[Rfam]
RNA sequence: AUUCAUCCAUGGGUGGGGAUUUGUUGCAUUACUUGUAUUAUAUGUAAAGUAUUGCACUUGUCCCGGCCUGUGGAAGAAAG
Numbered sequence: 001a002u003u004c005a006u007c008c009a010u011g012g013g014u015g016g017g018g019a020u021u022u023g024u025u026g027c028a029u030u031a032c033u034u035g036u037a038u039u040a041u042a043u044g045u046a047a048a049g050u051a052u053u054g055c056a057c058u059u060g061u062c063c064c065g066g067c068c069u070g071u072g073g074a075a076g077a078a079a080g
Stems, first nucleotide, its partner, number of pairs: 004076001006074001009071006016064005023057002026055003030051005

Notes: mir-92 microRNA precursor family: an 80-nucleotide sequence from Cavia porcellus. Gene Ontology terms of the family: miRNA-mediated post-transcriptional gene silencing and RISC complex. On this family, see Mourelatos et al., Genes Dev 2002: "miRNPs: a novel class of ribonucleoproteins containing numerous microRNAs". The family is grouped with related families in Rfam's "mir-92 microRNA precursor clan". From the family's description: This family represents the microRNA precursor mir-92. Human miR-92 has two predicted hairpin precursor sequences: mir-92-1 on chromosome 13 and mir-92-2 on chromosome X. miR-92 has also been cloned from mouse embryonic stem cells. Pairs were carried over by alignment from the consensus structure, which was predicted with PFOLD. The source organism's lineage runs through Eukaryota, Gnathostomata, Euteleostomi, Theria and Cavia.